RNA sequence: GAGGUUAUUGACAAAGUAUUAGCGACGGAGAGAACAGGCAGAUCGUAAAGACGCCGUCAACCCAUCCCUGGGGGCUCGAGCCGCGCCCUCCCUGGCGCGGACGCUUU
Numbered sequence: 001g002a003g004g005u006u007a008u009u010g011a012c013a014a015a016g017u018a019u020u021a022g023c024g025a026c027g028g029a030g031a032g033a034a035c036a037g038g039c040a041g042a043u044c045g046u047a048a049a050g051a052c053g054c055c056g057u058c059a060a061c062c063c064a065u066c067c068c069u070g071g072g073g074g075c076u077c078g079a080g081c082c083g084c085g086c087c088c089u090c091c092c093u094g095g096c097g098c099g100g101a102c103g104c105u106u107u
Base pairs, nucleotide, nucleotide: 013107014106015105016104017103020028022026030077031076032075041066042065043064045063051057052056081100082099083098084097085096086095087094
RNA: Yersinia sRNA 224
Organism: Yersinia pestis